Notes:
The record is a 128-nucleotide RNA from Chionoecetes opilio, which matches "Small nucleolar RNA SNORA5" in Rfam. A search with the family's covariance model found it, with a score of 31 bits. ACA5 is a member of the H/ACA class of snoRNA that guide the sites of modification of uridines to pseudouridines. The family has 6 seed sequences and 2,226 matches in Rfam 15.1. The source organism's lineage runs through Eukaryota, Eumetazoa, Eumalacostraca, Majidae and Chionoecetes. Clan: SNORA5 clan.
[Rfam]
RNA sequence: GGCGGCCAUGUUUGAUUUGUCACGUUUACAGGGGUAAACGUGACAAUCCAAAAUGACCGCCACCGAAACUUGACAAUUCAUUUUGGGUCAAUCUUUGGUACCACUAGUCUAGGCGAUUGGCUAUAAAA
Numbered sequence: 001g002g003c004g005g006c007c008a009u010g011u012u013u014g015a016u017u018u019g020u021c022a023c024g025u026u027u028a029c030a031g032g033g034g035u036a037a038a039c040g041u042g043a044c045a046a047u048c049c050a051a052a053a054u055g056a057c058c059g060c061c062a063c064c065g066a067a068a069c070u071u072g073a074c075a076a077u078u079c080a081u082u083u084u085g086g087g088u089c090a091a092u093c094u095u096u097g098g099u100a101c102c103a104c105u106a107g108u109c110u111a112g113g114c115g116a117u118u119g120g121c122u123a124u125a126a127a128a
Base pairs, nucleotide, nucleotide: 002060003059004058005057017046018045019044020043021042022041023040024039025038026037027036086122087121088120089119090118091117092116093115